RNA sequence: AUCUGCAUGGCUCUCCGGAUGCCAAGUAGGAAGGCCAUCACACACACUUGAUGAACCCAUCUUAGUUGGCAUCCAGGGAGCCAGGCAGAU
Numbered sequence: 001a002u003c004u005g006c007a008u009g010g011c012u013c014u015c016c017g018g019a020u021g022c023c024a025a026g027u028a029g030g031a032a033g034g035c036c037a038u039c040a041c042a043c044a045c046a047c048u049u050g051a052u053g054a055a056c057c058c059a060u061c062u063u064a065g066u067u068g069g070c071a072u073c074c075a076g077g078g079a080g081c082c083a084g085g086c087a088g089a090u
Base pairs, nucleotide, nucleotide: 001090002089003088004087005086006085008083009082010081011080012079013078014077017074018073019072020071021070022069023068024067027064028063029062

This 90-nucleotide RNA sequence from Colocasia esculenta belongs to the Rfam family "mir-160 microRNA precursor family". The family's consensus secondary structure was predicted with PFOLD. Gene Ontology terms of the family: miRNA-mediated post-transcriptional gene silencing and RISC complex. A reference for the family is Rhoades et al. (2002), "Prediction of plant microRNA targets", Cell. NCBI's taxonomy places the organism under Eukaryota, Tracheophyta, Mesangiospermae, Liliopsida, Colocasia.